[Rfam]
RNA sequence: GUCAAUUACCCACACCUGAUAGGUGGGGGCAUGUCCCGUGAGGGGUAUGGGCAACAAGUUGACAAGGAGGCAUAAAUUAUGCAGCAGUUAGAAAAAAGAAAUACAUACACACCCACCGAUAUUCCGCACGUUCGUGGCAACUGUGAUCUGGCAUUAAACAAUUCUGAGAGUAGGAAUAGUGUGCCAGAUUUAAAAACGUCUUCUAACAACUCCGAUGCGGCUCUAAU
Numbered sequence: 001g002u003c004a005a006u007u008a009c010c011c012a013c014a015c016c017u018g019a020u021a022g023g024u025g026g027g028g029g030c031a032u033g034u035c036c037c038g039u040g041a042g043g044g045g046u047a048u049g050g051g052c053a054a055c056a057a058g059u060u061g062a063c064a065a066g067g068a069g070g071c072a073u074a075a076a077u078u079a080u081g082c083a084g085c086a087g088u089u090a091g092a093a094a095a096a097a098g099a100a101a102u103a104c105a106u107a108c109a110c111a112c113c114c115a116c117c118g119a120u121a122u123u124c125c126g127c128a129c130g131u132u133c134g135u136g137g138c139a140a141c142u143g144u145g146a147u148c149u150g151g152c153a154u155u156a157a158a159c160a161a162u163u164c165u166g167a168g169a170g171u172a173g174g175a176a177u178a179g180u181g182u183g184c185c186a187g188a189u190u191u192a193a194a195a196a197c198g199u200c201u202u203c204u205a206a207c208a209a210c211u212c213c214g215a216u217g218c219g220g221c222u223c224u225a226a227u
Stems, first nucleotide, its partner, number of pairs: 001063007010029002013025001015023002030049008066213004071081004087207007095199001109144002113137004118132003124220005146189009158180002161177004165172002
Description: The family of this 227-nucleotide RNA from a Candidatus Brocadiaceae bacterium is "HNH endonuclease-associated RNA and ORF (HEARO) RNA". The organism belongs to Candidatus Brocadiaceae, within Bacteria.